[Rfam]
RNA: Small nucleolar RNA Z247
RNA sequence: CCGCUUGAAGAAGAAGAGUUGGUCGAGCACAUCCUUACCGUCCUGGACCAUGAGUUCAUGCCAAUGGUCUCCGCCAUCAUCGCAAGGACAGAGCCAACCUCUAUUGGAGAGUUAUACUCCCAGCUGAUGAGCUUCGAGA
Numbered sequence: 001c002c003g004c005u006u007g008a009a010g011a012a013g014a015a016g017a018g019u020u021g022g023u024c025g026a027g028c029a030c031a032u033c034c035u036u037a038c039c040g041u042c043c044u045g046g047a048c049c050a051u052g053a054g055u056u057c058a059u060g061c062c063a064a065u066g067g068u069c070u071c072c073g074c075c076a077u078c079a080u081c082g083c084a085a086g087g088a089c090a091g092a093g094c095c096a097a098c099c100u101c102u103a104u105u106g107g108a109g110a111g112u113u114a115u116a117c118u119c120c121c122a123g124c125u126g127a128u129g130a131g132c133u134u135c136g137a138g139a
Stems, first nucleotide, its partner, number of pairs: 004138005089107001091105002